[Rfam]
RNA: Plant signal recognition particle RNA
Nucleotides: 305
Stems, first nucleotide, its partner, number of pairs: 001040003004023007028037003043305002046302002049299005058291001060288002063284001067280001069279001072276001074274003080264005086258002089255003093252002099249008107238002110236001112234003116229004123223003126166003130162002134160009144151002174219005185210001187208001192203003
Number, partner (000 for none) and nucleotide at each position: 001040g002039c003038c004023g005022a006021g007020c008019u009018u010017a011000g012000u013000u014000g015000c016000g017010u018009g019008a020007g021006c022005u023004u024000a025000u026000a027000a028037c029036c030035c031000g032000u033000g034000u035030g036029g037028g038003g039002g040001c041000a042000u043305u044304a045000a046302g047301a048000u049299g050298a051297u052296g053295u054000g055000g056000a057000c058291g059000c060288u061287g062000u063284u064000g065000u066000a067280g068000u069279g070000u071000u072276g073000c074274g075273g076272g077000c078000c079000u080264g081263g082262u083261c084260u085000g086258g087257g088000u089255g090254u091253g092000c093252u094251a095000u096000u097000g098000a099249u100248g101247g102246c103245c104244u105243g106242c107238c108237c109000g110236u111000c112234c113233c114232a115000a116229g117228u118227u119226g120000c121000a122000u123223a124222g125221u126166g127165g128164a129000c130162c131161g132000c133000u134160u135159g136158g137157g138156g139155c140154c141153u142152a143000u144151g145150c146000g147000a148000a149000a150145g151144c152142u153141g154140g155139g156138c157137c158136u159135c160134a161131c162130g163000a164128u165127c166126c167000a168000u169000a170000a171000u172000g173000u174219g175218g176217c177216a178215g179000g180000c181000a182000c183000a184000g185210c186000a187208u188000g189000a190000g191000g192203c193202u194201g195000g196000c197000u198000u199000c200000a201194c202193a203192g204000a205000g206000c207000a208187g209000c210185g211000a212000c213000a214000a215178c216177u217176g218175c219174c220000c221125g222124c223123u224000u225000c226119u227118a228117a229116c230000g231000g232114u233113g234112g235000a236110a237108g238107g239000a240000u241000a242106g243105c244104a245103g246102g247101c248100c249099g250000c251094u252093g253091c254090a255089u256000u257087c258086c259000g260084g261083g262082a263081c264080c265000a266000u267000c268000a269000u270000u271000u272076u273075u274074u275000u276072c277000u278000u279069u280067u281000g282000u283000g284063a285000u286000g287061c288060g289000u290000a291058u292000a293000a294000a295053g296052u297051a298050u299049c300000c301047u302046c303000c304044u305043a